[Rfam]
RNA sequence: UUGCAGAGAGGGAGAAGUUGUCACGAUUAUGUAGCCUUUGAGCGUUUCCAAGCAUAAGCGUAUGGCUUUUCCCCUCUGCUG
Numbered sequence: 001u002u003g004c005a006g007a008g009a010g011g012g013a014g015a016a017g018u019u020g021u022c023a024c025g026a027u028u029a030u031g032u033a034g035c036c037u038u039u040g041a042g043c044g045u046u047u048c049c050a051a052g053c054a055u056a057a058g059c060g061u062a063u064g065g066c067u068u069u070u071c072c073c074c075u076c077u078g079c080u081g
Stems, first nucleotide, its partner, number of pairs: 003079005010073003014069002018065004027057005
A member of the RNA family "mir-965 microRNA precursor family" from Armadillidium nasatum, 81 nucleotides long. For this family Rfam cites "The regulation of silkworm fibroin L chain production by miRNA-965 and miRNA-1926 in insect cells" (Huang et al., Bioorg Khim, 2012). A search with the family's covariance model found it, with a score of 56 bits.